Rfam assigns this 395-nucleotide RNA sequence from Yoonia vestfoldensis to the family "Bacterial RNase P class A".
[Rfam]
RNA sequence: GCGGAUGGCUGGAUGGCUGCGGGCCUGUCAUGGGUUCGAGGAAAGUCCGGACUCCACAAAGCACGGUGCCGGGUAACGCCCGGCGGGGGUAACCCCAGGGAAAGCGCCACAGAGAACAGACUACCUCGUAUAGCGGGGAAAAGGUGAAACGGUGGGGUAAGAGCCCACCGCGGGACGGGCAACCGGACCGGCACGGCAAGCCCCACCGGGAGCAAUGCCAAAUAGGGACCGCGCGCGGUGUUGAUCCUGCAAAGGAUAUCAGCCGCAGGGAGGCUUGAGCCCGAGCGGUCCGGGUUGGCAGCUAGAGAGCGUCUGGCAACAGGCGUUCCAGAUGAAUGGUCAUCCAGGGUGGUUCGCCACCUGGACAGAAUCCGGCUUACAGGCCAUCCGCGCAA
Numbered sequence: 001g002c003g004g005a006u007g008g009c010u011g012g013a014u015g016g017c018u019g020c021g022g023g024c025c026u027g028u029c030a031u032g033g034g035u036u037c038g039a040g041g042a043a044a045g046u047c048c049g050g051a052c053u054c055c056a057c058a059a060a061g062c063a064c065g066g067u068g069c070c071g072g073g074u075a076a077c078g079c080c081c082g083g084c085g086g087g088g089g090u091a092a093c094c095c096c097a098g099g100g101a102a103a104g105c106g107c108c109a110c111a112g113a114g115a116a117c118a119g120a121c122u123a124c125c126u127c128g129u130a131u132a133g134c135g136g137g138g139a140a141a142a143g144g145u146g147a148a149a150c151g152g153u154g155g156g157g158u159a160a161g162a163g164c165c166c167a168c169c170g171c172g173g174g175a176c177g178g179g180c181a182a183c184c185g186g187a188c189c190g191g192c193a194c195g196g197c198a199a200g201c202c203c204c205a206c207c208g209g210g211a212g213c214a215a216u217g218c219c220a221a222a223u224a225g226g227g228a229c230c231g232c233g234c235g236c237g238g239u240g241u242u243g244a245u246c247c248u249g250c251a252a253a254g255g256a257u258a259u260c261a262g263c264c265g266c267a268g269g270g271a272g273g274c275u276u277g278a279g280c281c282c283g284a285g286c287g288g289u290c291c292g293g294g295u296u297g298g299c300a301g302c303u304a305g306a307g308a309g310c311g312u313c314u315g316g317c318a319a320c321a322g323g324c325g326u327u328c329c330a331g332a333u334g335a336a337u338g339g340u341c342a343u344c345c346a347g348g349g350u351g352g353u354u355c356g357c358c359a360c361c362u363g364g365a366c367a368g369a370a371u372c373c374g375g376c377u378u379a380c381a382g383g384c385c386a387u388c389c390g391c392g393c394a395a
Stems, first nucleotide, its partner, number of pairs: 001391010011380001012344007020038008043378003047375005052212004059276004064208005069083005084098001085096004099203002104201002106197003121143002124138006151169006170192001171190003176185003216300004226291006268282003308327008
Source information
Rfam classes the family as a ribozyme. It is one of the family's seed sequences. Pairs were carried over by alignment from the consensus structure, which is taken from published work. NCBI's taxonomy places the organism under Bacteria, Pseudomonadota, Alphaproteobacteria, Rhodobacterales, Yoonia vestfoldensis.